[Rfam]
Nucleotides: 074
Stems, first nucleotide, its partner, number of pairs: 002034008011025003038070012
Number, partner (000 for none) and nucleotide at each position: 001000c002034c003033c004032g005031g006030u007029c008028c009027g010000a011025c012024u013023c014000c015000u016000c017000c018000c019000c020000c021000c022000c023013g024012a025011g026000c027009c028008g029007g030006a031005c032004c033003g034002g035000c036000c037000a038070g039069a040068c041067g042066g043065c044064c045063c046062c047061c048060g049059c050000u051000c052000c053000c054000c055000c056000c057000c058000a059049g060048c061047g062046g063045g064044g065043g066042c067041c068040g069039u070038c071000g072000c073000c074000u
Shown here is a 74-nucleotide RNA sequence from Kineosporia babensis, a member of the family "6C RNA". The base pairs follow the family's consensus structure, which is taken from published work. The match comes from Rfam's covariance-model search (50 bits). Lineage of the source: Bacteria > Bacillati > Actinomycetota > Actinomycetes > Kineosporia. A reference for the family is Weinberg et al. (2007), "Identification of 22 candidate structured RNAs in bacteria using the CMfinder comparative genomics pipeline", Nucleic Acids Res.